[Rfam]
RNA sequence: CCGGCCAUUCGUGGGGAGUAGUCGGCUUGCGCCGCCCCGGCGCAAGAACCUGUGUCAACAUAAUCGGUCCGCAGACCGUGGCGCAGGUGGCCCGCAGCCGCUAUGGCGGCAAGGCUUGACGAGACCAUGACCCUGUUGCGGCCAUGACGGGCCGGAGCCGCGCGUGGGUCAUUGGUUCAUCGUUCCGGC
Numbered sequence: 001c002c003g004g005c006c007a008u009u010c011g012u013g014g015g016g017a018g019u020a021g022u023c024g025g026c027u028u029g030c031g032c033c034g035c036c037c038c039g040g041c042g043c044a045a046g047a048a049c050c051u052g053u054g055u056c057a058a059c060a061u062a063a064u065c066g067g068u069c070c071g072c073a074g075a076c077c078g079u080g081g082c083g084c085a086g087g088u089g090g091c092c093c094g095c096a097g098c099c100g101c102u103a104u105g106g107c108g109g110c111a112a113g114g115c116u117u118g119a120c121g122a123g124a125c126c127a128u129g130a131c132c133c134u135g136u137u138g139c140g141g142c143c144a145u146g147a148c149g150g151g152c153c154g155g156a157g158c159c160g161c162g163c164g165u166g167g168g169u170c171a172u173u174g175g176u177u178c179a180u181c182g183u184u185c186c187g188g189c
Base pairs, nucleotide, nucleotide: 026046027045028044029043030042031041048088049087050086051085052084053083054082055081056080057079065078066077067076068075069074
RNA: Manganese Mn2+ riboswitch aptamer (yybP-ykoY)